[Rfam]
RNA: c-di-GMP-I riboswitch aptamer
RNA sequence: AUCAGAAAAAGGCUAACCUAUUGAAAAAUAGGGUCGCAAAGUUACAGACCUAAGGUUUAACACUAUGGUGGCUGGACUACCGGA
Numbered sequence: 001a002u003c004a005g006a007a008a009a010a011g012g013c014u015a016a017c018c019u020a021u022u023g024a025a026a027a028a029u030a031g032g033g034u035c036g037c038a039a040a041g042u043u044a045c046a047g048a049c050c051u052a053a054g055g056u057u058u059a060a061c062a063c064u065a066u067g068g069u070g071g072c073u074g075g076a077c078u079a080c081c082g083g084a
Stems, first nucleotide, its partner, number of pairs: 012037002017032006040078004045074003048069003055063002